[Rfam]
A member of the RNA family "ALIL pseudoknot" from Neokomagataea tanensis, 117 nucleotides long. It scores 103 bits against the family's covariance model. The base pairs follow the family's consensus structure, which is taken from published work.
RNA sequence: AGCGUAUUUUGCCUAGGCGGAACUCGGCCGUCACUUCAAACCAUGACGCGCUUCAUUGAUGAGCAGCGUCAAACCUAUGGUGUCGGGUCAAUUUGCAAGGUCUUGCCGAUUGCACCA
Numbered sequence: 001a002g003c004g005u006a007u008u009u010u011g012c013c014u015a016g017g018c019g020g021a022a023c024u025c026g027g028c029c030g031u032c033a034c035u036u037c038a039a040a041c042c043a044u045g046a047c048g049c050g051c052u053u054c055a056u057u058g059a060u061g062a063g064c065a066g067c068g069u070c071a072a073a074c075c076u077a078u079g080g081u082g083u084c085g086g087g088u089c090a091a092u093u094u095g096c097a098a099g100g101u102c103u104u105g106c107c108g109a110u111u112g113c114a115c116c117a
Base pairs, nucleotide, nucleotide: 016032017031018030019029020028078117079116080115081114082113089112090111092109093108095106096105097104098103